[Rfam]
RNA: Yersinia sRNA 224
Organism: Prodigiosinella confusarubida
RNA sequence: AAGGUUGAUAACAACGUGCGCAUAGCGGCGAUAACAGGGAGAUCGUAAAGACGCUGUAAAUCCAUCCCUGUAAGCUUAAGCCGCGCCAUCCCUGGCGCGGAUGCUUU
Numbered sequence: 001a002a003g004g005u006u007g008a009u010a011a012c013a014a015c016g017u018g019c020g021c022a023u024a025g026c027g028g029c030g031a032u033a034a035c036a037g038g039g040a041g042a043u044c045g046u047a048a049a050g051a052c053g054c055u056g057u058a059a060a061u062c063c064a065u066c067c068c069u070g071u072a073a074g075c076u077u078a079a080g081c082c083g084c085g086c087c088a089u090c091c092c093u094g095g096c097g098c099g100g101a102u103g104c105u106u107u
Stems, first nucleotide, its partner, number of pairs: 013107002016104003021027001030077002041066003045063001047061001051057002081100008